[Rfam]
RNA sequence: CUUUUUUGCUAUCUGUGAUAGAUAAGAUUCGAACCUGCAGCAGGUUCGGGUCGAACGAAGUGAAGACAACGGAGCCGCCCGCGGCGACGGCCCGAAGGGCGAGCAAAGCGAGUCAUCCUGCACGACCCACCA
Numbered sequence: 001c002u003u004u005u006u007u008g009c010u011a012u013c014u015g016u017g018a019u020a021g022a023u024a025a026g027a028u029u030c031g032a033a034c035c036u037g038c039a040g041c042a043g044g045u046u047c048g049g050g051u052c053g054a055a056c057g058a059a060g061u062g063a064a065g066a067c068a069a070c071g072g073a074g075c076c077g078c079c080c081g082c083g084g085c086g087a088c089g090g091c092c093c094g095a096a097g098g099g100c101g102a103g104c105a106a107a108g109c110g111a112g113u114c115a116u117c118c119u120g121c122a123c124g125a126c127c128c129a130c131c132a
Stems, first nucleotide, its partner, number of pairs: 015123003021117001023115001034099002045096004052062002070089002076086003
This 132-nucleotide sequence from Klebsiella indica belongs to the Rfam family "RtT RNA".
A reference for the family is Bosl and Kersten (1991), "A novel RNA product of the tyrT operon of Escherichia coli", Nucleic Acids Res.
Lineage of the source: Bacteria > Pseudomonadota > Enterobacterales > Enterobacteriaceae > Klebsiella.
This family represents a bacterial cis-regulatory element known as RtT RNA. The exact function of RtT is unknown although it is thought that it may be involved in changing the cellular response in relation to amino acid starvation.